[Rfam]
RNA sequence: UGGCAUGCUUUCCUAAGGACCUGGACUUGUUUGUAGUCUUGGGUUCUCCAAGUGCAUGCAAGAAAAUGGGGUGGUCUUUGACUGUUGUGGCCCUCUUCUGCCAUCAGCAGCCACUCAGCUGUCCUACAGAU
Numbered sequence: 001u002g003g004c005a006u007g008c009u010u011u012c013c014u015a016a017g018g019a020c021c022u023g024g025a026c027u028u029g030u031u032u033g034u035a036g037u038c039u040u041g042g043g044u045u046c047u048c049c050a051a052g053u054g055c056a057u058g059c060a061a062g063a064a065a066a067u068g069g070g071g072u073g074g075u076c077u078u079u080g081a082c083u084g085u086u087g088u089g090g091c092c093c094u095c096u097u098c099u100g101c102c103a104u105c106a107g108c109a110g111c112c113a114c115u116c117a118g119c120u121g122u123c124c125u126a127c128a129g130a131u
Base pairs, nucleotide, nucleotide: 013042018038019037020036024032069124070123071122072121073120074119084111085110087104088103089102090101

About this RNA
This 131-nucleotide RNA sequence from Echeneis naucrates belongs to the Rfam family "Small nucleolar RNA SNORA44". Rfam's curators write: ACA44 is a member of the H/ACA class of snoRNA that guide the sites of modification of uridines to pseudouridines. The family's consensus secondary structure was predicted with PFOLD. A search with the family's covariance model found it, with a score of 70 bits. On this family, see Huttenhofer et al., EMBO J 2001: "RNomics: an experimental approach that identifies 201 candidates for novel, small, non-messenger RNAs in mouse". By type it is an H/ACA-box small nucleolar RNA. Rfam 15.1 lists 1,056 matches to the family in 599 species.